[Rfam]
RNA sequence: AAACCCUGCGUGCACUCAGGUCCGCCGCAUCUCCUGGGAACCGUAGGGUCGGCCGGUCGGGUUCGGCGCGGAUGGCCUCUCCGCUUAGCCGUUGGCCCGGCCGGCCACCUC
Numbered sequence: 001a002a003a004c005c006c007u008g009c010g011u012g013c014a015c016u017c018a019g020g021u022c023c024g025c026c027g028c029a030u031c032u033c034c035u036g037g038g039a040a041c042c043g044u045a046g047g048g049u050c051g052g053c054c055g056g057u058c059g060g061g062u063u064c065g066g067c068g069c070g071g072a073u074g075g076c077c078u079c080u081c082c083g084c085u086u087a088g089c090c091g092u093u094g095g096c097c098c099g100g101c102c103g104g105c106c107a108c109c110u111c
Stems, first nucleotide, its partner, number of pairs: 003049008015038006051106011
RNA: EcpR1